A member of the RNA family "Antisense RNA which regulates isiA expression" from Anabaenopsis elenkinii, 178 nucleotides long. The family has 308 seed sequences and 3,397 matches in Rfam 15.1. Pairs were carried over by alignment from the consensus structure, which was predicted with PFOLD. For this family Rfam cites "An internal antisense RNA regulates expression of the photosynthesis gene isiA" (Duhring et al., Proc Natl Acad Sci U S A, 2006).
RNA sequence: GAUAGCCAUAAAUGACAAAGGGGUUAAGAGUGGGCUGAGUAACUAGCCGUACAUCAUGAAUUGUGCUGUCGUAAAUUCCUCCCCAGAACAUGGCUUUUCCCACCAGUAAUAAAGCUGCUACACCGAGGAAGAGAAGAUGGUGUCCCAAAAUUAAGCCCAGCUGUUUGGGGUCAUCCCA
Numbered sequence: 001g002a003u004a005g006c007c008a009u010a011a012a013u014g015a016c017a018a019a020g021g022g023g024u025u026a027a028g029a030g031u032g033g034g035c036u037g038a039g040u041a042a043c044u045a046g047c048c049g050u051a052c053a054u055c056a057u058g059a060a061u062u063g064u065g066c067u068g069u070c071g072u073a074a075a076u077u078c079c080u081c082c083c084c085a086g087a088a089c090a091u092g093g094c095u096u097u098u099c100c101c102a103c104c105a106g107u108a109a110u111a112a113a114g115c116u117g118c119u120a121c122a123c124c125g126a127g128g129a130a131g132a133g134a135a136g137a138u139g140g141u142g143u144c145c146c147a148a149a150a151u152u153a154a155g156c157c158c159a160g161c162u163g164u165u166u167g168g169g170g171u172c173a174u175c176c177c178a
Stems, first nucleotide, its partner, number of pairs: 136175006144169005